[Rfam]
RNA: FMN riboswitch aptamer (RFN element)
Organism: Lactobacillus johnsonii
RNA sequence: UGUUGUCUUCAGGGCAGGGCGAAAUUCCCGACCGGCGGUUAGAGUCCGCGAGCUACACAUGUAGUUGAACCUCAGGUACCGAUAGUUAUAGUCUAGAUGGAAGAAGACAGAC
Numbered sequence: 001u002g003u004u005g006u007c008u009u010c011a012g013g014g015c016a017g018g019g020c021g022a023a024a025u026u027c028c029c030g031a032c033c034g035g036c037g038g039u040u041a042g043a044g045u046c047c048g049c050g051a052g053c054u055a056c057a058c059a060u061g062u063a064g065u066u067g068a069a070c071c072u073c074a075g076g077u078a079c080c081g082a083u084a085g086u087u088a089u090a091g092u093c094u095a096g097a098u099g100g101a102a103g104a105a106g107a108c109a110g111a112c
Stems, first nucleotide, its partner, number of pairs: 003110008017029003031092002033081002035049004044079002052065003069077003083095003